[Rfam]
Nucleotides: 143
Stems, first nucleotide, its partner, number of pairs: 003141008017029003031123002033112002035062004057110002066087002092108005114126003
Number, partner (000 for none) and nucleotide at each position: 001000c002000c003141a004140u005139u006138c007137c008136u009135u010134c011000a012000g013000g014000g015000c016000g017029g018028g019027g020000u021000g022000g023000a024000a025000u026000u027019c028018c029017c030000c031123a032122c033112c034111g035062g036061c037060g038059g039000u040000g041000a042000g043000g044000g045000g046000c047000a048000u049000g050000u051000c052000c053000c054000c055000a056000a057110g058109c059038c060037c061036g062035c063000g064000a065000a066087g067086c068000c069000u070000g071000g072000a073000a074000a075000u076000c077000u078000u079000g080000c081000u082000c083000c084000a085000g086067g087066c088000c089000c090000g091000a092108u093107u094106c095105g096104g097000u098000g099000a100000a101000a102000a103000u104096c105095c106094g107093a108092a109058g110057c111034c112033g113000a114126c115125g116124g117000u118000u119000a120000a121000a122032g123031u124116c125115c126114g127000g128000a129000u130000g131000g132000g133000a134010g135009a136008a137007g138006g139005a140004g141003u142000g143000a

Overview
Rfam assigns this 143-nucleotide RNA sequence from Meiothermus sp. QL-1 to the family "FMN riboswitch aptamer (RFN element)". The RFN element is a highly conserved domain that is found frequently in the 5'-untranslated regions of prokaryotic mRNAs that encode for flavin mononucleotide (FMN) biosynthesis and transport proteins. The match comes from Rfam's covariance-model search (115 bits). NCBI's taxonomy places the organism under Bacteria, Thermotogati, Deinococci, Thermales, Meiothermus.